The record is a 104-nucleotide RNA sequence from Digitaria exilis, which matches "Small nucleolar RNA snoR99" in Rfam. The family's consensus secondary structure was predicted with WAR. The organism belongs to Digitaria, within Eukaryota. The match comes from Rfam's covariance-model search (67 bits).
RNA sequence: GUGCCUGUGGGAUGAACAGGUCCCAAUAUUUAGCACCAUUUUACUAACUUUGUCAACUACAUUAUCCGUACAUUAUUAGCUGAUCAUUUAAGGAUGGAAAAUUA
Numbered sequence: 001g002u003g004c005c006u007g008u009g010g011g012a013u014g015a016a017c018a019g020g021u022c023c024c025a026a027u028a029u030u031u032a033g034c035a036c037c038a039u040u041u042u043a044c045u046a047a048c049u050u051u052g053u054c055a056a057c058u059a060c061a062u063u064a065u066c067c068g069u070a071c072a073u074u075a076u077u078a079g080c081u082g083a084u085c086a087u088u089u090a091a092g093g094a095u096g097g098a099a100a101a102u103u104a
Stems, first nucleotide, its partner, number of pairs: 036097005052084004057079003
Dot-bracket structure: ...................................(((((...........((((.(((.................))).))))........))))).......